[Rfam]
Nucleotides: 073
Stems, first nucleotide, its partner, number of pairs: 001072007010025004027043005049065005
Number, partner (000 for none) and nucleotide at each position: 001072g002071g003070g004069c005068g006067c007066u008000u009000a010025g011024c012023u013022c014000a015000g016000u017000u018000g019000g020000u021000a022013g023012a024011g025010c026000a027043u028042c029041u030040c031039g032000u033000u034000u035000a036000c037000a038000c039031c040030g041029a042028g043027a044000g045000g046000g047000u048000c049065g050064g051063c052062a053061g054000u055000u056000c057000g058000a059000g060000c061053c062052u063051g064050u065049c066007a067006g068005c069004g070003c071002c072001c073000a